[Rfam]
RNA: Bacterial RNase P class A
RNA sequence: GCGGAAGGUCGGAUGGCCGCUUGCCGCUCUUUCGGGGGCGGUGAGAGGAAAGUCCGGACUCCACGAAGCAACGGUGCCGGGUAACGCCCGGCCGGGGAAACCCGAGGGAAAGCGCCACAGAGAACAGACCGCCCCGCGUCCGCGCGGAGCAAGGGUGAAACGGUGGGGUAAGAGCCCACCGCGGGACGGGCAACCGGACCGGCACGGCAAGCCCCACCGGGAGCAAUGCCAAAUAGGGACCUCACACGGGCGCGCUUCGGCUCCGGGGUCCGGGUUGGCAGCUAGAGCGCGCCGGUGACGGCGGGCCCAGAUGAAUGGUCAUCGCCGGCGCAUCCGCGCCGGUACAGAAUCCGGCUUAUGCACCUUCCGCGCAA
Numbered sequence: 001g002c003g004g005a006a007g008g009u010c011g012g013a014u015g016g017c018c019g020c021u022u023g024c025c026g027c028u029c030u031u032u033c034g035g036g037g038g039c040g041g042u043g044a045g046a047g048g049a050a051a052g053u054c055c056g057g058a059c060u061c062c063a064c065g066a067a068g069c070a071a072c073g074g075u076g077c078c079g080g081g082u083a084a085c086g087c088c089c090g091g092c093c094g095g096g097g098a099a100a101c102c103c104g105a106g107g108g109a110a111a112g113c114g115c116c117a118c119a120g121a122g123a124a125c126a127g128a129c130c131g132c133c134c135c136g137c138g139u140c141c142g143c144g145c146g147g148a149g150c151a152a153g154g155g156u157g158a159a160a161c162g163g164u165g166g167g168g169u170a171a172g173a174g175c176c177c178a179c180c181g182c183g184g185g186a187c188g189g190g191c192a193a194c195c196g197g198a199c200c201g202g203c204a205c206g207g208c209a210a211g212c213c214c215c216a217c218c219g220g221g222a223g224c225a226a227u228g229c230c231a232a233a234u235a236g237g238g239a240c241c242u243c244a245c246a247c248g249g250g251c252g253c254g255c256u257u258c259g260g261c262u263c264c265g266g267g268g269u270c271c272g273g274g275u276u277g278g279c280a281g282c283u284a285g286a287g288c289g290c291g292c293c294g295g296u297g298a299c300g301g302c303g304g305g306c307c308c309a310g311a312u313g314a315a316u317g318g319u320c321a322u323c324g325c326c327g328g329c330g331c332a333u334c335c336g337c338g339c340c341g342g343u344a345c346a347g348a349a350u351c352c353g354g355c356u357u358a359u360g361c362a363c364c365u366u367c368c369g370c371g372c373a374a
Stems, first nucleotide, its partner, number of pairs: 001370009011359001012323007020045009050357003054354005059223004067257002072219005077091005092106001093104004107214002112212002114208003129154002131150002134147005162180006181203001182201003187196003227280004237271006248262002251259002287306002290303005